[Rfam]
RNA sequence: UUUUUUAGGGAAAAUCUGGCCUUCCCACAAGGGGAGGCCGGGAAACUUUCCA
Number, nucleotide and partner (000 for none) at each position: 001u000002u000003u000004u000005u000006u000007a000008g000009g051010g050011a049012a048013a047014a000015u042016c041017u040018g039019g038020c037021c036022u035023u034024c033025c032026c000027a000028c000029a000030a000031g000032g025033g024034g023035a022036g021037g020038c019039c018040g017041g016042g015043a000044a000045a000046c000047u013048u012049u011050c010051c009052a000
The family of this 52-nucleotide RNA from Lentivirus humimdef1 is "HIV Ribosomal frameshift signal". Lineage of the source: Viruses > Riboviria > Artverviricota > Lentivirus > Lentivirus humimdef1. Rfam's curators put it in the seed alignment. From the family's description: This family represents the HIV Ribosomal frameshift signal. Gene Ontology term of the family: viral translational frameshifting. The base pairs follow the family's consensus structure, which is taken from published work.